[Rfam]
About this RNA:
This 588-nucleotide part of an RNA from [Eubacterium] yurii belongs to the Rfam family "Bacterial large subunit ribosomal RNA". It is one of the family's seed sequences. The base pairs follow the family's consensus structure, which is taken from published work.

RNA sequence: CCUGCGACAGGACGGAAAGACCCCAUGGAGCUUUACUGUAGCUUAGUAUUGAAUUUAUGUAAUUAAUGUACAGAAUAGGUGGGAGGCUGAGAGAUUAGGUCGUCAGAUUUAAAGGAGCCGCCUUUGGGAUACCACCCUUUGAUUAUGUGAGUUCUAACCGGAAUCUUUGAAGCAAGGUACGGGACAGUGCUUGGCGGACAGUUUGACUGGGGCGGUCGCCUCCCAAAGAGUAACGGAGGCGUCCAAAGGUUCCCUCAGCAUGGUCGGAAAUCAUGCGAAGAGUGCAAAGGCAAAAGGGAGCUUGAUUGCGAGACCAACAAGUCGAGCAAAGACGAAAGUCGGGCUUAGUGAUCCGGUGGUAGAAAGUGGAAUUGCCAUCGCUCAACGGAUAAAAGCUACCCUGGGGAUAACAGGCUGAUCUCCCCCAAGAGUUCACAUCGACGGGGAGGUUUGGCACCUCGAUGUCGGCUCAUCACAUCCUGGGGCUGGAGUAGGUCCCAAGGGUUGGGCUGUUCGCCCAUUAAAGUGGUACGCGAGCUGGGUUCAGAACGUCGUGAGACAGUUCGGUCCCUAUCCGUCGCAGGCGUU
Numbered sequence: 001c002c003u004g005c006g007a008c009a010g011g012a013c014g015g016a017a018a019g020a021c022c023c024c025a026u027g028g029a030g031c032u033u034u035a036c037u038g039u040a041g042c043u044u045a046g047u048a049u050u051g052a053a054u055u056u057a058u059g060u061a062a063u064u065a066a067u068g069u070a071c072a073g074a075a076u077a078g079g080u081g082g083g084a085g086g087c088u089g090a091g092a093g094a095u096u097a098g099g100u101c102g103u104c105a106g107a108u109u110u111a112a113a114g115g116a117g118c119c120g121c122c123u124u125u126g127g128g129a130u131a132c133c134a135c136c137c138u139u140u141g142a143u144u145a146u147g148u149g150a151g152u153u154c155u156a157a158c159c160g161g162a163a164u165c166u167u168u169g170a171a172g173c174a175a176g177g178u179a180c181g182g183g184a185c186a187g188u189g190c191u192u193g194g195c196g197g198a199c200a201g202u203u204u205g206a207c208u209g210g211g212g213c214g215g216u217c218g219c220c221u222c223c224c225a226a227a228g229a230g231u232a233a234c235g236g237a238g239g240c241g242u243c244c245a246a247a248g249g250u251u252c253c254c255u256c257a258g259c260a261u262g263g264u265c266g267g268a269a270a271u272c273a274u275g276c277g278a279a280g281a282g283u284g285c286a287a288a289g290g291c292a293a294a295a296g297g298g299a300g301c302u303u304g305a306u307u308g309c310g311a312g313a314c315c316a317a318c319a320a321g322u323c324g325a326g327c328a329a330a331g332a333c334g335a336a337a338g339u340c341g342g343g344c345u346u347a348g349u350g351a352u353c354c355g356g357u358g359g360u361a362g363a364a365a366g367u368g369g370a371a372u373u374g375c376c377a378u379c380g381c382u383c384a385a386c387g388g389a390u391a392a393a394a395g396c397u398a399c400c401c402u403g404g405g406g407a408u409a410a411c412a413g414g415c416u417g418a419u420c421u422c423c424c425c426c427a428a429g430a431g432u433u434c435a436c437a438u439c440g441a442c443g444g445g446g447a448g449g450u451u452u453g454g455c456a457c458c459u460c461g462a463u464g465u466c467g468g469c470u471c472a473u474c475a476c477a478u479c480c481u482g483g484g485g486c487u488g489g490a491g492u493a494g495g496u497c498c499c500a501a502g503g504g505u506u507g508g509g510c511u512g513u514u515c516g517c518c519c520a521u522u523a524a525a526g527u528g529g530u531a532c533g534c535g536a537g538c539u540g541g542g543u544u545c546a547g548a549a550c551g552u553c554g555u556g557a558g559a560c561a562g563u564u565c566g567g568u569c570c571c572u573a574u575c576c577g578u579c580g581c582a583g584g585c586g587u588u
Stems, first nucleotide, its partner, number of pairs: 001584008010576003014571002022405004027401002029397005035202004042194002045191004051154016068137001078136005085119003095112007158182003163178005205217004218240006241386001243343002249301006255281002258276006282291002306329004312323003331340003354380007362373002414455003418452001419449007429439002466541001467539004471533001472530005479504002482499006506520005547565004551560003